[Rfam]
Background: A member of the RNA family "serC leader" from Breoghania sp. L-A4, 52 nucleotides long. A reference for the family is Corbino et al. (2005), "Evidence for a second class of S-adenosylmethionine riboswitches and other regulatory RNA motifs in alpha-proteobacteria", Genome Biol. The organism belongs to Breoghania, within Bacteria. Rfam describes the family as follows. This family is a putative regulatory RNA structure that is found upstream of the serC-serA operon in some alpha-proteobacteria. Pairs were carried over by alignment from the consensus structure. Rfam classes the family as a cis-regulatory leader.

RNA sequence: UGGCGGGACACCCCUCCCCAACGAGGGGCAUCUAUCUGUGAGGAUAGCGACA
Dot-bracket structure: ..........((((((......))))))...((((((....)))))).....
Numbered sequence: 001u002g003g004c005g006g007g008a009c010a011c012c013c014c015u016c017c018c019c020a021a022c023g024a025g026g027g028g029c030a031u032c033u034a035u036c037u038g039u040g041a042g043g044a045u046a047g048c049g050a051c052a
Stems, first nucleotide, its partner, number of pairs: 011028006032047006